[Rfam]
RNA sequence: UUCUGAAGCAUUGCACCCAGAGUCUGGUCCCCAGACAUUGAACCUGGAGCUUUGUUUUUUAUUAAAUGGCAAU
Numbered sequence: 001u002u003c004u005g006a007a008g009c010a011u012u013g014c015a016c017c018c019a020g021a022g023u024c025u026g027g028u029c030c031c032c033a034g035a036c037a038u039u040g041a042a043c044c045u046g047g048a049g050c051u052u053u054g055u056u057u058u059u060u061a062u063u064a065a066a067u068g069g070c071a072a073u
Stems, first nucleotide, its partner, number of pairs: 005053005017047004022036005
RNA: U1A polyadenylation inhibition element (PIE)